[Rfam]
RNA sequence: CUACUAUGCCAGCUGGUGGAUAGCUCGGCUCAGGUGCCGACGAAGGACGUGCCAAGCUGCGAUAAGCUCCAGGGACCCGCACGGAGGGGAAGAACUGGAGAUCUCCGAAUAGGAAUCCUCACUGCAAUUGCUUCGCGCAAUGGGGAACGCCGGGAAUUGAAACAUCUCAGUACCGGCAGGAAGAGAAAACGAAUGUGAUGUCGUUAGUAACCGCGAGUGAACGCGACCUAGCCCAAACCGAAGCCUUCGGGCAAUGUGGUGUUAGGGCUGACUCUCAUCACCGGAUCGUCUUCACGAAGUCUCCUGGAACGGAGCGUGAAACAGGGUGACAACCCCGUAGUGAAGACCAGUACGGUGUGCGUCAGUUCCAGAGUAUCGGGGGUUGGAAAUCCCUCGUGAACACGGCAGGCAUCGACUGCCAAGGCUAAAUACUACCUGAGACCGAUAGUGAAAAAGUAGCGUGAGCGAACGCUGCAAAGCACCCUCAGAAGGGAGGUGCAAUAGGGCUUGAAAUCAGUUGGCGAUGGAGC
Numbered sequence: 001c002u003a004c005u006a007u008g009c010c011a012g013c014u015g016g017u018g019g020a021u022a023g024c025u026c027g028g029c030u031c032a033g034g035u036g037c038c039g040a041c042g043a044a045g046g047a048c049g050u051g052c053c054a055a056g057c058u059g060c061g062a063u064a065a066g067c068u069c070c071a072g073g074g075a076c077c078c079g080c081a082c083g084g085a086g087g088g089g090a091a092g093a094a095c096u097g098g099a100g101a102u103c104u105c106c107g108a109a110u111a112g113g114a115a116u117c118c119u120c121a122c123u124g125c126a127a128u129u130g131c132u133u134c135g136c137g138c139a140a141u142g143g144g145g146a147a148c149g150c151c152g153g154g155a156a157u158u159g160a161a162a163c164a165u166c167u168c169a170g171u172a173c174c175g176g177c178a179g180g181a182a183g184a185g186a187a188a189a190c191g192a193a194u195g196u197g198a199u200g201u202c203g204u205u206a207g208u209a210a211c212c213g214c215g216a217g218u219g220a221a222c223g224c225g226a227c228c229u230a231g232c233c234c235a236a237a238c239c240g241a242a243g244c245c246u247u248c249g250g251g252c253a254a255u256g257u258g259g260u261g262u263u264a265g266g267g268c269u270g271a272c273u274c275u276c277a278u279c280a281c282c283g284g285a286u287c288g289u290c291u292u293c294a295c296g297a298a299g300u301c302u303c304c305u306g307g308a309a310c311g312g313a314g315c316g317u318g319a320a321a322c323a324g325g326g327u328g329a330c331a332a333c334c335c336c337g338u339a340g341u342g343a344a345g346a347c348c349a350g351u352a353c354g355g356u357g358u359g360c361g362u363c364a365g366u367u368c369c370a371g372a373g374u375a376u377c378g379g380g381g382g383u384u385g386g387a388a389a390u391c392c393c394u395c396g397u398g399a400a401c402a403c404g405g406c407a408g409g410c411a412u413c414g415a416c417u418g419c420c421a422a423g424g425c426u427a428a429a430u431a432c433u434a435c436c437u438g439a440g441a442c443c444g445a446u447a448g449u450g451a452a453a454a455a456g457u458a459g460c461g462u463g464a465g466c467g468a469a470c471g472c473u474g475c476a477a478a479g480c481a482c483c484c485u486c487a488g489a490a491g492g493g494a495g496g497u498g499c500a501a502u503a504g505g506g507c508u509u510g511a512a513a514u515c516a517g518u519u520g521g522c523g524a525u526g527g528a529g530c
Base pairs, nucleotide, nucleotide: 007523008522009521010520011519012518013517014516015515016514022508023472024471027443028442029440030439031438032437033436034435036432045106046105047104048061049060050059067100068099069098070097071096072095076088077087078086111119112118113117127141128140129139130138131137148179149177150176151175152174153173159166160165189196190195200227201226202225203224204223210218211217230426231425232424233423238259239258240257269364270363271362272361279357280356281355282354293342294341295340299315301314302313303312304311318322324336325335326334377396378395379394380393381392382391404420405419406418407417408416459466460465

Shown here is a 530-nucleotide part of an RNA from Halorientalis sp. IM1011, a member of the family "Archaeal large subunit ribosomal RNA". Its Rfam clan is "LSU clan". The organism belongs to Halorientalis, within Archaea.